[Rfam]
RNA sequence: AAAACUUUUUCACUUUUCCUCCUAGUAAAAACAAUGUUUUGUGCGAAGCACAAAACUCGAAGAUAAACAGUGAGGCUGAAUUCCUGCCGAACUGUUUAUCGAAC
Numbered sequence: 001a002a003a004a005c006u007u008u009u010u011c012a013c014u015u016u017u018c019c020u021c022c023u024a025g026u027a028a029a030a031a032c033a034a035u036g037u038u039u040u041g042u043g044c045g046a047a048g049c050a051c052a053a054a055a056c057u058c059g060a061a062g063a064u065a066a067a068c069a070g071u072g073a074g075g076c077u078g079a080a081u082u083c084c085u086g087c088c089g090a091a092c093u094g095u096u097u098a099u100c101g102a103a104c
Stems, first nucleotide, its partner, number of pairs: 002015002032059001034057001036056008062100010074088002
Dot-bracket structure: .((..........))................(.(.((((((((.....))))))))).)..((((((((((..((...........))..))))))))))....
The record is a 104-nucleotide sequence from Treponema denticola, which matches "TD-2 RNA" in Rfam. The match comes from Rfam's covariance-model search (51 bits). Clan: TD (Treponema denticola) motifs.